RNA sequence: UUUGUAUCCAAAUAACAGCAAUGCAUAAUUCAUUAAACAAUAUCUGGUGGUGGAGCAACUUACGUCAACACGUCGUGAGCUAAGCCCUUUACAGGUAUUUUUUAAGAAAAAUAUAUAAGGCUUGUC
Numbered sequence: 001u002u003u004g005u006a007u008c009c010a011a012a013u014a015a016c017a018g019c020a021a022u023g024c025a026u027a028a029u030u031c032a033u034u035a036a037a038c039a040a041u042a043u044c045u046g047g048u049g050g051u052g053g054a055g056c057a058a059c060u061u062a063c064g065u066c067a068a069c070a071c072g073u074c075g076u077g078a079g080c081u082a083a084g085c086c087c088u089u090u091a092c093a094g095g096u097a098u099u100u101u102u103u104a105a106g107a108a109a110a111a112u113a114u115a116u117a118a119g120g121c122u123u124g125u126c
Base pairs, nucleotide, nucleotide: 036103037102040098041097042096043095044094045093047090049088050087052085057081059079060078061077062073063072064071

The record is a 126-nucleotide sequence from Sinomicrobium soli, which matches "Bacteroidete tryptophan peptide leader RNA" in Rfam. It scores 62 bits against the family's covariance model. Rfam links the family to the GO terms S-adenosylmethionine metabolic process and regulation of gene expression.